[Rfam]
Shown here is a 115-nucleotide RNA from Clostridium sp. 'deep sea', a member of the family "FMN riboswitch aptamer (RFN element)". A search with the family's covariance model found it, with a score of 110 bits.
RNA sequence: AAAUAAUUUCAGGGCAGGGUUAGUUUCCCGACCGGUGGUUAAAGUCCACGAGCCUUAUGGCUGACUUGGUGAAAUUCCAAGACCGACAGUAAAGUCUGGAUGAAAGAAAUUUAUA
Numbered sequence: 001a002a003a004u005a006a007u008u009u010c011a012g013g014g015c016a017g018g019g020u021u022a023g024u025u026u027c028c029c030g031a032c033c034g035g036u037g038g039u040u041a042a043a044g045u046c047c048a049c050g051a052g053c054c055u056u057a058u059g060g061c062u063g064a065c066u067u068g069g070u071g072a073a074a075u076u077c078c079a080a081g082a083c084c085g086a087c088a089g090u091a092a093a094g095u096c097u098g099g100a101u102g103a104a105a106g107a108a109a110u111u112u113a114u115a
Stems, first nucleotide, its partner, number of pairs: 005111006017029003031095002033085002035049004044083002052061003065081005087098003
Dot-bracket structure: ....((((((......(((.......))).[[((((((.....[[))))..(((....)))...(((((.......)))))]])).(((....]]))).......))))))....